The family of this 123-nucleotide sequence from Parendozoicomonas haliclonae is "Ribosomal S15 leader". Rfam links the family to the GO term regulation of translation, ncRNA-mediated. It is annotated as a cis-regulatory leader. The family's consensus secondary structure is taken from published work. Rfam describes the family as follows. The E. coli Ribosomal S15 gene 5' UTR can form two alternative structures. One that is a series of three hairpins, The other includes a pseudoknot. This structure causes translational regulation of the S15 protein. The alignment of this family contains only the final two hairpins which are conserved in other species, and also includes the complete region that forms the alternate structures. For this family Rfam cites "Pseudoknot and translational control in the expression of the S15 ribosomal protein" (Benard et al., Biochimie, 1996).

[Rfam]
RNA sequence: CGGGGUGGCUGUUAAUAUGCGCGGCUAUUCCCUUGAUUGAUGCAUAUUUUUAAUAGGAGUUACACAAUGUCUCUGACUGUAGAGCAAAAGGCUGAAAUCGUAGCCAAGUACGCCCGUGGCGAG
Number, nucleotide and partner (000 for none) at each position: 001c000002g000003g000004g000005g000006u000007g026008g025009c024010u023011g022012u021013u000014a000015a000016u000017a000018u000019g000020c000021g012022c011023g010024g009025c008026u007027a000028u000029u000030c000031c000032c000033u000034u000035g000036a000037u000038u000039g000040a000041u000042g000043c000044a000045u000046a000047u000048u000049u000050u000051u000052a000053a000054u076055a000056g074057g073058a072059g071060u000061u000062a000063c000064a000065c000066a000067a000068u000069g000070u000071c059072u058073c057074u056075g000076a054077c000078u000079g000080u000081a000082g000083a000084g000085c000086a000087a000088a000089a000090g000091g000092c000093u000094g000095a000096a000097a000098u000099c000100g000101u000102a000103g000104c000105c000106a000107a000108g000109u000110a000111c000112g000113c000114c000115c000116g000117u000118g000119g000120c000121g000122a000123g000